Background:
Rfam assigns this 95-nucleotide sequence from Musa balbisiana to the family "Plastid-rps12 3UTR RNA". Rfam classes the family as a cis-regulatory element. The source organism's lineage runs through Eukaryota, Embryophyta, Petrosaviidae, commelinids and Musa. Pairs were carried over by alignment from the consensus structure, which was predicted with LocARNA.

RNA sequence: GGUUUCCAGUGGUGAAUCCAAUCACCUAGAUUUGAGAUGAAAAGCAAUUCCCCAUGGUAGCAAAUAGGUUAUCCAUUAAGCGGAGGCAAUAGUAA
Numbered sequence: 001g002g003u004u005u006c007c008a009g010u011g012g013u014g015a016a017u018c019c020a021a022u023c024a025c026c027u028a029g030a031u032u033u034g035a036g037a038u039g040a041a042a043a044g045c046a047a048u049u050c051c052c053c054a055u056g057g058u059a060g061c062a063a064a065u066a067g068g069u070u071a072u073c074c075a076u077u078a079a080g081c082g083g084a085g086g087c088a089a090u091a092g093u094a095a
Stems, first nucleotide, its partner, number of pairs: 010020003050085001052083002054076002056073006